[Rfam]
RNA sequence: UGAGGAUCAGAAAUGUUACUGAGAAACUGUGCUAUGUAUAUGUAACUUCCUAAAGGAAUUGAAGAUAACCAGAACUUACUAAUACUGAGAUUCCUU
Numbered sequence: 001u002g003a004g005g006a007u008c009a010g011a012a013a014u015g016u017u018a019c020u021g022a023g024a025a026a027c028u029g030u031g032c033u034a035u036g037u038a039u040a041u042g043u044a045a046c047u048u049c050c051u052a053a054a055g056g057a058a059u060u061g062a063a064g065a066u067a068a069c070c071a072g073a074a075c076u077u078a079c080u081a082a083u084a085c086u087g088a089g090a091u092u093c094c095u096u
Base pairs, nucleotide, nucleotide: 002095004093005092006091007090

The family of this 96-nucleotide RNA from Glycine max is "Small nucleolar RNA snoR27". A search with the family's covariance model found it, with a score of 44 bits. Gene Ontology terms of the family: RNA processing and nucleolus. By type it is a C/D-box small nucleolar RNA. Clan: snR68 clan. The family's consensus secondary structure was predicted with WAR.